[Rfam]
RNA sequence: UAAGCGCUGCCCGGCGCGUGAGGACACAGAAUCCCCGGGGCCUUAAUCGAUCCUAAGGGAGCUGUCCCUGACCAGGCCCGUGGGCUUGGACAUACGGCGCCCACCUACGUAAGUAGGUUCCCGGGAUCGCAAUUCCCACGGCCUGGGCGGCACAAAU
Numbered sequence: 001u002a003a004g005c006g007c008u009g010c011c012c013g014g015c016g017c018g019u020g021a022g023g024a025c026a027c028a029g030a031a032u033c034c035c036c037g038g039g040g041c042c043u044u045a046a047u048c049g050a051u052c053c054u055a056a057g058g059g060a061g062c063u064g065u066c067c068c069u070g071a072c073c074a075g076g077c078c079c080g081u082g083g084g085c086u087u088g089g090a091c092a093u094a095c096g097g098c099g100c101c102c103a104c105c106u107a108c109g110u111a112a113g114u115a116g117g118u119u120c121c122c123g124g125g126a127u128c129g130c131a132a133u134u135c136c137c138a139c140g141g142c143c144u145g146g147g148c149g150g151c152a153c154a155a156a157u
Base pairs, nucleotide, nucleotide: 004153006151007150008149009148010147011146013143014142015141017140018139019138032126033125034124035123037121038120039119040118041117042116057102058101059100061098062097063096064095065094070091072089073088074087075086076085077084078083

Record summary:
Shown here is a 157-nucleotide sequence from Devosia sp. MC521, a member of the family "6S / SsrS RNA". The family's RNA type in Rfam is non-coding RNA gene. Taxonomically the source falls in Devosia (Bacteria, Pseudomonadati, Pseudomonadota, Alphaproteobacteria). Rfam 15.1 lists 5,006 matches to the family in 4,638 species. The family's consensus secondary structure is taken from published work.